[Rfam]
RNA sequence: AGUUAUGGAUGAUGAGAUAAGCAAUUCACAGUUAUCCCUGUCUGAUACAUUUGAUGAAUGCUUGUGAUCUGACAUUACU
Numbered sequence: 001a002g003u004u005a006u007g008g009a010u011g012a013u014g015a016g017a018u019a020a021g022c023a024a025u026u027c028a029c030a031g032u033u034a035u036c037c038c039u040g041u042c043u044g045a046u047a048c049a050u051u052u053g054a055u056g057a058a059u060g061c062u063u064g065u066g067a068u069c070u071g072a073c074a075u076u077a078c079u
Base pairs, nucleotide, nucleotide: 001079002078003077005075006074007073
RNA: Small nucleolar RNA R38